Antizyme RNA frameshifting stimulation element: a 59-nucleotide RNA sequence from Bagarius yarrelli. NCBI's taxonomy places the organism under Eukaryota, Craniata, Gnathostomata, Characiphysae, Bagarius. For this family Rfam cites "Identification of a new antizyme mRNA +1 frameshifting stimulatory pseudoknot in a subset of diverse invertebrates and its apparent absence in intermediate species" (Ivanov et al., J Mol Biol, 2004). This family represents a structural element which is found in antizyme mRNA and is known to promote frameshifting. Antizyme genes have have two partially overlapping open reading frames, the second, which encodes the functional protein requires +1 translational frameshifting. This frameshift is stimulated by a pseudoknot present 3' of the frameshift site in the antizyme mRNA. The frameshifting efficiency is dependent on the level of polyamines in the cell, when the polyamine concentration is high frameshifting is more likely to occur which leads to an increase in the quantity of functional antizyme produced. The functional antizyme acts to reduce ornithine decarboxylase (ODC) activity which leads to a drop in polyamines present in the cell. The family's RNA type in Rfam is frameshift element.
RNA sequence: UGAUGCCCCUCACCCACCUUUGAAGAUCCCAGGUGGGCGAGGGAACGAUCAGAGGGAUC
Dot-bracket structure: ......(((((.((((((......[[[[[[.)))))).)))))..........]]]]]]